The record is a 73-nucleotide RNA from Fukomys damarensis, which matches "mir-1905 microRNA precursor family" in Rfam. The match comes from Rfam's covariance-model search (84 bits). The source organism's lineage runs through Eukaryota, Gnathostomata, Teleostomi, Hystricomorpha and Fukomys.
[Rfam]
RNA sequence: GUGUCUGCUGCUGGAUGCGCUUGAUCGUGGCGCCUUUGGGACCCACGACGAGACCCACCACGCGGUAGGGCAC
Numbered sequence: 001g002u003g004u005c006u007g008c009u010g011c012u013g014g015a016u017g018c019g020c021u022u023g024a025u026c027g028u029g030g031c032g033c034c035u036u037u038g039g040g041a042c043c044c045a046c047g048a049c050g051a052g053a054c055c056c057a058c059c060a061c062g063c064g065g066u067a068g069g070g071c072a073c
Stems, first nucleotide, its partner, number of pairs: 004069008012060003017055001020052002023049001025048004030043001033040002